RNA: FMN riboswitch aptamer (RFN element)
RNA sequence: GAUUUCCUUCGGGGCUGGGUGAAAAUCCCGACCGGCGGUGAUGAGGCUGCGCCUCUUAGUCCGUGACCCGUUUUUCAUAUGGAUAACGGUGGAUUUGGUGAAAUUCCAAAGCCGACAGUGAAAGUCUGGAUGGGAGAAGGAAACA
Numbered sequence: 001g002a003u004u005u006c007c008u009u010c011g012g013g014g015c016u017g018g019g020u021g022a023a024a025a026u027c028c029c030g031a032c033c034g035g036c037g038g039u040g041a042u043g044a045g046g047c048u049g050c051g052c053c054u055c056u057u058a059g060u061c062c063g064u065g066a067c068c069c070g071u072u073u074u075u076c077a078u079a080u081g082g083a084u085a086a087c088g089g090u091g092g093a094u095u096u097g098g099u100g101a102a103a104u105u106c107c108a109a110a111g112c113c114g115a116c117a118g119u120g121a122a123a124g125u126c127u128g129g130a131u132g133g134g135a136g137a138a139g140g141a142a143a144c145a
Base pairs, nucleotide, nucleotide: 003143004142005141006140007139008138009137010136017029018028019027031125032124033114034113035064036063037062038061059112060111068089069088094110095109096108097107098106116128117127118126